[Rfam]
RNA sequence: UAAAGAUAAAGCCACACCUGGAGAUUACCAGGGCCGGAAAGCCACGGAUCCACAGAGAUAGCCGAGCUGCCUUU
Numbered sequence: 001u002a003a004a005g006a007u008a009a010a011g012c013c014a015c016a017c018c019u020g021g022a023g024a025u026u027a028c029c030a031g032g033g034c035c036g037g038a039a040a041g042c043c044a045c046g047g048a049u050c051c052a053c054a055g056a057g058a059u060a061g062c063c064g065a066g067c068u069g070c071c072u073u074u
Base pairs, nucleotide, nucleotide: 012037013036017032018031019030020029021028040068041067042066045064046063047062048059049058050057
Dot-bracket structure: ...........((...(((((......)))))...))..(((..((((((......)))..))).)))......

Source information:
Shown here is a 74-nucleotide RNA, a member of the family "c-di-GMP-I riboswitch aptamer".